[Rfam]
RNA sequence: CGUGGGGGGUGGUGUCCUUCAGCCCGGAUUGCAAGAGGGCACAGGCCAGCCUGAAGGACCCCACUGGUGCAGG
Numbered sequence: 001c002g003u004g005g006g007g008g009g010u011g012g013u014g015u016c017c018u019u020c021a022g023c024c025c026g027g028a029u030u031g032c033a034a035g036a037g038g039g040c041a042c043a044g045g046c047c048a049g050c051c052u053g054a055a056g057g058a059c060c061c062c063a064c065u066g067g068u069g070c071a072g073g
Base pairs, nucleotide, nucleotide: 003071004070006068008065009064011062012061014059015058016057017056018055019054020053021052022051024049026047027046029044030043031042

Source information:
Rfam assigns this 73-nucleotide RNA from Myotis davidii to the family "mir-9193 microRNA precursor family". The family's consensus secondary structure was predicted with RNAalifold. Gene Ontology terms of the family: RISC complex and miRNA-mediated post-transcriptional gene silencing. The source organism's lineage runs through Eukaryota, Gnathostomata, Mammalia, Theria and Myotis. A search with the family's covariance model found it, with a score of 57 bits.